[Rfam]
Nucleotides: 093
Stems, first nucleotide, its partner, number of pairs: 001022006008016002029054006036047003055088002060084007068077003
Number, partner (000 for none) and nucleotide at each position: 001022c002021c003020g004019g005018c006017u007000g008016c009015c010000c011000a012000a013000a014000g015009g016008g017006g018005g019004c020003u021002g022001g023000c024000a025000u026000a027000c028000c029054g030053g031052a032051g033050g034049u035000u036047c037046a038045g039000c040000u041000u042000a043000g044000g045038c046037u047036g048000c049034g050033c051032c052031u053030c054029u055088a056087u057000c058000u059000c060084c061083c062082a063081u064080g065079u066078u067000g068077c069076u070075u071000u072000a073000c074000g075070g076069a077068g078066g079065a080064u081063a082062u083061g084060g085000u086000u087056a088055u089000g090000a091000g092000a093000a